[Rfam]
RNA sequence: UGUGUAUGGUGGUGAAACGCUCAGACUCCUGUGGUGGCUGCUUAUGCACCACGGAUAUCUGAGCAUGUGCUAUGGUGUCUC
Numbered sequence: 001u002g003u004g005u006a007u008g009g010u011g012g013u014g015a016a017a018c019g020c021u022c023a024g025a026c027u028c029c030u031g032u033g034g035u036g037g038c039u040g041c042u043u044a045u046g047c048a049c050c051a052c053g054g055a056u057a058u059c060u061g062a063g064c065a066u067g068u069g070c071u072a073u074g075g076u077g078u079c080u081c
Stems, first nucleotide, its partner, number of pairs: 004078004009073004015068001017066001019064007027055003034052004039048003

Annotation
Rfam assigns this 81-nucleotide RNA sequence from Octodon degus to the family "mir-105 microRNA precursor family". The base pairs follow the family's consensus structure, which was predicted with RNAalifold. The match comes from Rfam's covariance-model search (78 bits). Rfam 15.1 lists 245 matches to the family in 127 species. The literature on the family includes a 2002 paper in Genes Dev by Mourelatos et al., "miRNPs: a novel class of ribonucleoproteins containing numerous microRNAs". Lineage of the source: Eukaryota > Bilateria > Vertebrata > Teleostomi > Octodon.